[Rfam]
RNA sequence: AUUGUUUUUGUGGUAUAGGCCGGUUGGAGUAUGGGGAAAGAUUGUCGGUUCUCUAUGCGCUAUCGCCGGUGUGCUCACCAUCGCUCUGCCCGUUCCCGUCAUCGUGUCUAAC
Numbered sequence: 001a002u003u004g005u006u007u008u009u010g011u012g013g014u015a016u017a018g019g020c021c022g023g024u025u026g027g028a029g030u031a032u033g034g035g036g037a038a039a040g041a042u043u044g045u046c047g048g049u050u051c052u053c054u055a056u057g058c059g060c061u062a063u064c065g066c067c068g069g070u071g072u073g074c075u076c077a078c079c080a081u082c083g084c085u086c087u088g089c090c091c092g093u094u095c096c097c098g099u100c101a102u103c104g105u106g107u108c109u110a111a112c
Stems, first nucleotide, its partner, number of pairs: 002111001004108001006106001008104001010102001012100003018094003035075002038072001047061003
Dot-bracket structure: .(.(.(.(.(.(((...(((..............((.(........(((.........)))..........).))................)))...))).).).).)..).
RNA: Potassium channel RNA editing signal